A member of the RNA family "SAM riboswitch aptamer (S box leader)" from Pseudoglutamicibacter albus, 121 nucleotides long. Pairs were carried over by alignment from the consensus structure, which is taken from published work. Lineage of the source: Bacteria > Bacillati > Actinomycetes > Pseudoglutamicibacter > Pseudoglutamicibacter albus. A search with the family's covariance model found it, with a score of 53 bits.
RNA sequence: UGACCAUCUAGAGCGGUCGAGGGACCUGGCCCUGUGACGCCGCAGCAACCAUCGCCACAGUGUUCACUCAUGUAGCGUUCACUGCUGCAGCGAAUGGUGCUCAUGCCGGGAUCGAUGGAGU
Numbered sequence: 001u002g003a004c005c006a007u008c009u010a011g012a013g014c015g016g017u018c019g020a021g022g023g024a025c026c027u028g029g030c031c032c033u034g035u036g037a038c039g040c041c042g043c044a045g046c047a048a049c050c051a052u053c054g055c056c057a058c059a060g061u062g063u064u065c066a067c068u069c070a071u072g073u074a075g076c077g078u079u080c081a082c083u084g085c086u087g088c089a090g091c092g093a094a095u096g097g098u099g100c101u102c103a104u105g106c107c108g109g110g111a112u113c114g115a116u117g118g119a120g121u
Stems, first nucleotide, its partner, number of pairs: 004118005013043005021032003026109004044101004049097002052093004105113001